[Rfam]
RNA: msiK RNA
Organism: Streptomyces sp. SID3343
RNA sequence: GCUGAUCCCCCCAUUGCUUCGGAUCGUCCGGCACGUUCCUGCCGGUGAGGGGACACACCU
Dot-bracket structure: .........(((.(((...........((((((......))))))))).)))........